[Rfam]
RNA: Small nucleolar RNA Z155
Organism: Taxus chinensis
RNA sequence: CAUUGAGGUGAUGAUUAUUUUGUUUUCUGAAUCUUAACAUGUAUUACAGAAAAAUCAGACUACAAUUAUCUGAUCAAUG
Numbered sequence: 001c002a003u004u005g006a007g008g009u010g011a012u013g014a015u016u017a018u019u020u021u022g023u024u025u026u027c028u029g030a031a032u033c034u035u036a037a038c039a040u041g042u043a044u045u046a047c048a049g050a051a052a053a054a055u056c057a058g059a060c061u062a063c064a065a066u067u068a069u070c071u072g073a074u075c076a077a078u079g
Stems, first nucleotide, its partner, number of pairs: 001079006